[Rfam]
RNA sequence: CGCUCAUCCAGAGGGGCAGAGGGAACGGCCCGUUGAAGCCCCGGCAACCCUCCAGCCGGCACUCGCACAGCGCGAGGCCCCGGCGGGGAAGGUGCCAAGUCCGGCCUGCGGCGAGAUGCGCCGACAGGAAAGAUGAGGA
Numbered sequence: 001c002g003c004u005c006a007u008c009c010a011g012a013g014g015g016g017c018a019g020a021g022g023g024a025a026c027g028g029c030c031c032g033u034u035g036a037a038g039c040c041c042c043g044g045c046a047a048c049c050c051u052c053c054a055g056c057c058g059g060c061a062c063u064c065g066c067a068c069a070g071c072g073c074g075a076g077g078c079c080c081c082g083g084c085g086g087g088g089a090a091g092g093u094g095c096c097a098a099g100u101c102c103g104g105c106c107u108g109c110g111g112c113g114a115g116a117u118g119c120g121c122c123g124a125c126a127g128g129a130a131a132g133a134u135g136a137g138g139a
Stems, first nucleotide, its partner, number of pairs: 003137006013042005021031003026103003043096004048092002050088004100131001105128004
RNA: SAM riboswitch aptamer (S box leader)